RNA: Bacterial RNase P class A
RNA sequence: CCAGAUAGUUGGAUUAUCGCUAUCAGCUUUACUGAUAGAGGAAAGUCCGGGCUCCAUAAAGACACAGUGCCAGCUAAUUACUGGCGAGGGUGACUUCAGGGAUAGUGCCACAGAAAAUAAACCGCCUAAUCAAGGCAAGGGUGAAACGGCGAGGUAAGAGCUCACCGGUUUUUUGGUAACAAAAAACGCACGGCAAACCCCACUGGGAGCAAGGUUAAAUAGAGAAGACACUGCAGAAAUGCUAAAAACAGUCUUUAGUUAGUCUUCUGGGUUAACCGCUUGAGCUUGAGUGUGAACUCCAGCCUAGAGAAAUGAUAUCUUCAAUGACAGAACCCGGCUUAUAGACUGUCUGGCAAU
Dot-bracket structure: ((((((((((([[[.[[[.(((((((.....)))))))....(((.(((((((((....[[...(((((((((.......))))(((((....)))).)((...(((((............((((((.....))))..)).......((.(((.......))).))(((((((((....)))))))).)..)))..)))))))))))))...((((......((((((..................(((....]]..)))..)))))).....))))......(((.((((....)))).)))..........]]]]]].............)))))))).).))))))))))....